[Rfam]
RNA sequence: ACAAUGAUACUCCCGUUUAAAAUAACGGUAUACCCAUAAGAAUGGGAUAAGGUGAAAUUCCUGUGG
Number, nucleotide and partner (000 for none) at each position: 001a000002c000003a000004a000005u000006g000007a000008u000009a000010c000011u000012c063013c028014c027015g026016u025017u000018u000019a000020a000021a000022a000023u000024a000025a016026c015027g014028g013029u049030a048031u047032a000033c045034c044035c000036a000037u000038a000039a000040g000041a000042a000043u000044g034045g033046g000047a031048u030049a029050a062051g061052g060053u000054g000055a000056a000057a000058u000059u000060c052061c051062u050063g012064u000065g000066g000
Rfam assigns this 66-nucleotide RNA sequence from Clostridium perfringens to the family "pemK RNA". It is one of the family's seed sequences. The source organism's lineage runs through Bacteria, Eubacteriales, Clostridium, Clostridium perfringens and Clostridium perfringens D. The family's RNA type in Rfam is cis-regulatory element.